[Rfam]
The family of this 105-nucleotide RNA sequence from Limnohabitans sp. 103DPR2 is "SAH (S-adenosyl-L-homocysteine) riboswitch aptamer". The family has 52 seed sequences and 1,354 matches in Rfam 15.1. NCBI's taxonomy places the organism under Bacteria, Pseudomonadati, Betaproteobacteria, Comamonadaceae, Limnohabitans.
RNA sequence: AUCUCCAAGGAGCGUUGCAGCUCGCCGCCCAUCAAGGUUGCGAGUCAGGCUUGGAGUUCAAUCUGGGGCAUGCCCCAUUCUUAUUGCAAACCACGCUCACCUGCG
Numbered sequence: 001a002u003c004u005c006c007a008a009g010g011a012g013c014g015u016u017g018c019a020g021c022u023c024g025c026c027g028c029c030c031a032u033c034a035a036g037g038u039u040g041c042g043a044g045u046c047a048g049g050c051u052u053g054g055a056g057u058u059c060a061a062u063c064u065g066g067g068g069c070a071u072g073c074c075c076c077a078u079u080c081u082u083a084u085u086g087c088a089a090a091c092c093a094c095g096c097u098c099a100c101c102u103g104c105g
Stems, first nucleotide, its partner, number of pairs: 003056006021044005